[Rfam]
RNA sequence: GCUUACAGCUAGACUUGCCUGUAGUUGCUUAUCUAGACUUUUGUCUAGUGCACUCUUCUGCGGGUAGGCUAGCAUUAGUUUGGGUAGUUAGAUAAAGGUCUCUGUUAUGUACCUCUCUUUAGAGAGAACUUAUAGGGGAGAUGACAUGCAACUAGCCUAGACUAAGGUCUGCGUAUCUGCUAGGAUGCUGGCGUAAUGGCUGUAAGCAGCCCGUCUUAAAAUACAG
Numbered sequence: 001g002c003u004u005a006c007a008g009c010u011a012g013a014c015u016u017g018c019c020u021g022u023a024g025u026u027g028c029u030u031a032u033c034u035a036g037a038c039u040u041u042u043g044u045c046u047a048g049u050g051c052a053c054u055c056u057u058c059u060g061c062g063g064g065u066a067g068g069c070u071a072g073c074a075u076u077a078g079u080u081u082g083g084g085u086a087g088u089u090a091g092a093u094a095a096a097g098g099u100c101u102c103u104g105u106u107a108u109g110u111a112c113c114u115c116u117c118u119u120u121a122g123a124g125a126g127a128a129c130u131u132a133u134a135g136g137g138g139a140g141a142u143g144a145c146a147u148g149c150a151a152c153u154a155g156c157c158u159a160g161a162c163u164a165a166g167g168u169c170u171g172c173g174u175a176u177c178u179g180c181u182a183g184g185a186u187g188c189u190g191g192c193g194u195a196a197u198g199g200c201u202g203u204a205a206g207c208a209g210c211c212c213g214u215c216u217u218a219a220a221a222u223a224c225a226g
Base pairs, nucleotide, nucleotide: 001207002206003205004204005203006202007201008200009199015196017192018191019190021188022187023186211226213224214223